[Rfam]
RNA: Bacterial small signal recognition particle RNA
RNA sequence: UAAAAGAGCCAUGGGAAUGAUAACCUUGUAAUCUGGUCAGGAUGGAAACAUAGCAGCCACGUCGAGAAGUGUCAUGUCUUAUGGUUUUUUUGUACUA
Numbered sequence: 001u002a003a004a005a006g007a008g009c010c011a012u013g014g015g016a017a018u019g020a021u022a023a024c025c026u027u028g029u030a031a032u033c034u035g036g037u038c039a040g041g042a043u044g045g046a047a048a049c050a051u052a053g054c055a056g057c058c059a060c061g062u063c064g065a066g067a068a069g070u071g072u073c074a075u076g077u078c079u080u081a082u083g084g085u086u087u088u089u090u091u092g093u094a095c096u097a
Stems, first nucleotide, its partner, number of pairs: 004091005009084006017075006025066004034059004042051003